[Rfam]
RNA sequence: UUGAUCAAAGGAAGAUAUCUGAAAUUUAAUCUUAGGACACCUUCUGACACAAUUUCUUUACCUGGGUUGUGGAUGAGAAUGCAAUUCAAUUCUGAUGAUAAU
Numbered sequence: 001u002u003g004a005u006c007a008a009a010g011g012a013a014g015a016u017a018u019c020u021g022a023a024a025u026u027u028a029a030u031c032u033u034a035g036g037a038c039a040c041c042u043u044c045u046g047a048c049a050c051a052a053u054u055u056c057u058u059u060a061c062c063u064g065g066g067u068u069g070u071g072g073a074u075g076a077g078a079a080u081g082c083a084a085u086u087c088a089a090u091u092c093u094g095a096u097g098a099u100a101a102u
Base pairs, nucleotide, nucleotide: 002101004099005098006097007096045051046050

Description: Small nucleolar RNA snoR31/Z110/Z27: a 102-nucleotide sequence from Asparagus officinalis. The organism belongs to Asparagus, within Eukaryota. This family contains several related snoRNAs including R31, Z27 and Z110. The family has 8 seed sequences and 571 matches in Rfam 15.1. By type it is a C/D-box small nucleolar RNA. A search with the family's covariance model found it, with a score of 51 bits. A reference for the family is Barneche et al. (2001), "Identification of 66 box C/D snoRNAs in Arabidopsis thaliana: extensive gene duplications generated multiple isoforms predicting new ribosomal RNA 2'-O-methylation sites", J Mol Biol.